Shown here is a 122-nucleotide sequence from Streptomyces sp. ICBB 8177, a member of the family "TPP riboswitch aptamer (THI element)".
RNA sequence: CCAUUCCGACAGGGGAGCGCGUACGCGCUGAGAGUGCGGUGCCGCCGGAGGACGGCGGCGGGCCGCAGACCCUCGAACCUGAUCCGGGUCAUGCCGGCGUAGGGAGUCAUCGCACAUGAGCA
Numbered sequence: 001c002c003a004u005u006c007c008g009a010c011a012g013g014g015g016a017g018c019g020c021g022u023a024c025g026c027g028c029u030g031a032g033a034g035u036g037c038g039g040u041g042c043c044g045c046c047g048g049a050g051g052a053c054g055g056c057g058g059c060g061g062g063c064c065g066c067a068g069a070c071c072c073u074c075g076a077a078c079c080u081g082a083u084c085c086g087g088g089u090c091a092u093g094c095c096g097g098c099g100u101a102g103g104g105a106g107u108c109a110u111c112g113c114a115c116a117u118g119a120g121c122a
Stems, first nucleotide, its partner, number of pairs: 008108003011073004017028004035067005078103004084097004

The match comes from Rfam's covariance-model search (62 bits). The base pairs follow the family's consensus structure, which is taken from published work. Taxonomically the source falls in Streptomyces (Bacteria, Bacillati, Actinomycetota, Actinomycetes).